[Rfam]
RNA sequence: UAUAUGGGUCGGGGCGGCGCCAAGUUCCGAACCUGGUCAGGUCCGGGAGGAAGCAGCCAUAAGGGGCCUCUGACGAGCGCCCUGUCCCAUAUAGGA
Numbered sequence: 001u002a003u004a005u006g007g008g009u010c011g012g013g014g015c016g017g018c019g020c021c022a023a024g025u026u027c028c029g030a031a032c033c034u035g036g037u038c039a040g041g042u043c044c045g046g047g048a049g050g051a052a053g054c055a056g057c058c059a060u061a062a063g064g065g066g067c068c069u070c071u072g073a074c075g076a077g078c079g080c081c082c083u084g085u086c087c088c089a090u091a092u093a094g095g096a
Stems, first nucleotide, its partner, number of pairs: 004090005010084005015077001018075002021072002024067005034059004042051003